Shown here is a 68-nucleotide RNA from Nocardia aurantia, a member of the family "ASdes TB sRNA". The family has 26 seed sequences and 1,192 matches in Rfam 15.1.
RNA sequence: AGUUCGACCGGAUCGACGCUGCGGGUGACCACGAGGUAGUCGCGAAUCGCGAUGCCGUGCCGAUUCUC
Numbered sequence: 001a002g003u004u005c006g007a008c009c010g011g012a013u014c015g016a017c018g019c020u021g022c023g024g025g026u027g028a029c030c031a032c033g034a035g036g037u038a039g040u041c042g043c044g045a046a047u048c049g050c051g052a053u054g055c056c057g058u059g060c061c062g063a064u065u066c067u068c
Base pairs, nucleotide, nucleotide: 004063005062006061008059011030013028016026017025035056036055037054038053040052041051042050043049044048